Rfam assigns this 100-nucleotide RNA from Pedobacter duraquae to the family "SAM riboswitch aptamer (S box leader)". The family's consensus secondary structure is taken from published work. Gene Ontology term of the family: regulation of gene expression. NCBI's taxonomy places the organism under Bacteria, Pseudomonadati, Bacteroidota, Sphingobacteriales, Pedobacter. It scores 68 bits against the family's covariance model.
[Rfam]
RNA sequence: UGCUUAUAGAGAAAGAUGGAGGGAUUAGACCCUGCGAAGUCUUGGCAACCUGUGCUUACAAGGUGCUACAUUCUACGGGAUUUGUCCUGAAAGAUAAGUG
Numbered sequence: 001u002g003c004u005u006a007u008a009g010a011g012a013a014a015g016a017u018g019g020a021g022g023g024a025u026u027a028g029a030c031c032c033u034g035c036g037a038a039g040u041c042u043u044g045g046c047a048a049c050c051u052g053u054g055c056u057u058a059c060a061a062g063g064u065g066c067u068a069c070a071u072u073c074u075a076c077g078g079g080a081u082u083u084g085u086c087c088u089g090a091a092a093g094a095u096a097a098g099u100g
Stems, first nucleotide, its partner, number of pairs: 001100007013043005021032003026075004044067004049063002051060003071092001076089005